Shown here is a 357-nucleotide sequence from Ralstonia pseudosolanacearum, a member of the family "transfer-messenger RNA".
Lineage of the source: Bacteria > Betaproteobacteria > Burkholderiaceae > Ralstonia > Ralstonia pseudosolanacearum.
RNA sequence: GGGGCCGACCUGGUUUCGACGUGGGUUGCGAAGCAGUAGCGGGCAUACCGAGGACCCGUCACCUCGUUAAUCAAUGGGAACGCAAUAACUGCUAACGACAACCGUUACCAGCUGGCCGCUUAAUUGCGCGCCGUCCUCGCACUAGCUUGCCGAUAGGCUAGGGCCGCAAGGCCACGCGAGGUCAUUCAUAUCGGAUCGCUUCGGCCGGUGUCACGACGGCCGGGGUUAACUCCAAGUGACUCGUCGUCGCGCAGCGUGUUCGUCCGCGUCGCGCCGGUUAAAUCAAAUGACUGAACUAAGUAUGUAGAACGCUCUGUAGAGGACUUGCGGACGCGGGUUCGAUUCCCGCCGGCUCCA
Numbered sequence: 001g002g003g004g005c006c007g008a009c010c011u012g013g014u015u016u017c018g019a020c021g022u023g024g025g026u027u028g029c030g031a032a033g034c035a036g037u038a039g040c041g042g043g044c045a046u047a048c049c050g051a052g053g054a055c056c057c058g059u060c061a062c063c064u065c066g067u068u069a070a071u072c073a074a075u076g077g078g079a080a081c082g083c084a085a086u087a088a089c090u091g092c093u094a095a096c097g098a099c100a101a102c103c104g105u106u107a108c109c110a111g112c113u114g115g116c117c118g119c120u121u122a123a124u125u126g127c128g129c130g131c132c133g134u135c136c137u138c139g140c141a142c143u144a145g146c147u148u149g150c151c152g153a154u155a156g157g158c159u160a161g162g163g164c165c166g167c168a169a170g171g172c173c174a175c176g177c178g179a180g181g182u183c184a185u186u187c188a189u190a191u192c193g194g195a196u197c198g199c200u201u202c203g204g205c206c207g208g209u210g211u212c213a214c215g216a217c218g219g220c221c222g223g224g225g226u227u228a229a230c231u232c233c234a235a236g237u238g239a240c241u242c243g244u245c246g247u248c249g250c251g252c253a254g255c256g257u258g259u260u261c262g263u264c265c266g267c268g269u270c271g272c273g274c275c276g277g278u279u280a281a282a283u284c285a286a287a288u289g290a291c292u293g294a295a296c297u298a299a300g301u302a303u304g305u306a307g308a309a310c311g312c313u314c315u316g317u318a319g320a321g322g323a324c325u326u327g328c329g330g331a332c333g334c335g336g337g338u339u340c341g342a343u344u345c346c347c348g349c350c351g352g353c354u355c356c357a
Base pairs, nucleotide, nucleotide: 001356002355003354004353005352006351007350020329021328022327023326024325025324026323027322033317034316035315036314038313039312040311041310044304045303046302047301048300049066050065051064052063053062055078056077057076058075059074111134112133114132115131116130135181136180137179138178139177140176143160144159145158146157150194151193152192153191154190155189199225200224201223202222203221204220205219206218210240211239212238213237214236243278244277245276246275248273249272250271251270254267255266256265258296259295260294261293262291263290264289333349334348335347336346337345
Bacterial tmRNA, also known as 10Sa RNA or SsrA, is named for its dual tRNA and mRNA-like properties. Its role is to liberate the mRNA from a stalled ribosome. The base pairs follow the family's consensus structure, which is taken from published work.